A member of the RNA family "UnaL2 LINE 3' element" from Megalops atlanticus, 54 nucleotides long. NCBI's taxonomy places the organism under Eukaryota, Metazoa, Teleostomi, Elopocephala, Megalops. Rfam classes the family as a cis-regulatory element.
RNA sequence: AACUGUAGCUGAUGUAAGUCACUCUGGAUAAGAGCGUCUGCUAAAUGCCAAUAA
Number, nucleotide and partner (000 for none) at each position: 001a000002a000003c000004u000005g000006u000007a000008g000009c000010u000011g000012a000013u043014g041015u040016a039017a000018g000019u000020c036021a000022c034023u033024c032025u031026g000027g000028a000029u000030a000031a025032g024033a023034g022035c000036g020037u000038c000039u016040g015041c014042u000043a013044a000045a000046u000047g000048c000049c000050a000051a000052u000053a000054a000